The record is a 157-nucleotide sequence from Gossypium mustelinum, which matches "mir-166 microRNA precursor family" in Rfam. Rfam describes the family as follows. This family represents the plant microRNA (miRNA) precursor mir-166. A search with the family's covariance model found it, with a score of 71 bits. Taxonomically the source falls in Gossypium (Eukaryota, Viridiplantae, Embryophyta, Tracheophyta). Gene Ontology terms of the family: miRNA-mediated post-transcriptional gene silencing and RISC complex.
RNA sequence: UCUGAGGGGAAUGUUGUCUGGACCGGGGACACUUGUGUUUCUAAUCCGUUUUCCCUGCAAUAUUGUUCUGAUUAACGUGGGGAUCUUUAUAUUGCUUAUUUUUGUAAUGGAUUAAGGUUGUACUAGUGUCGUCGGACCAGGCUUCAUUCCCCCCAAU
Numbered sequence: 001u002c003u004g005a006g007g008g009g010a011a012u013g014u015u016g017u018c019u020g021g022a023c024c025g026g027g028g029a030c031a032c033u034u035g036u037g038u039u040u041c042u043a044a045u046c047c048g049u050u051u052u053c054c055c056u057g058c059a060a061u062a063u064u065g066u067u068c069u070g071a072u073u074a075a076c077g078u079g080g081g082g083a084u085c086u087u088u089a090u091a092u093u094g095c096u097u098a099u100u101u102u103u104g105u106a107a108u109g110g111a112u113u114a115a116g117g118u119u120g121u122a123c124u125a126g127u128g129u130c131g132u133c134g135g136a137c138c139a140g141g142c143u144u145c146a147u148u149c150c151c152c153c154c155a156a157u
Stems, first nucleotide, its partner, number of pairs: 003155002006152008016142006024134003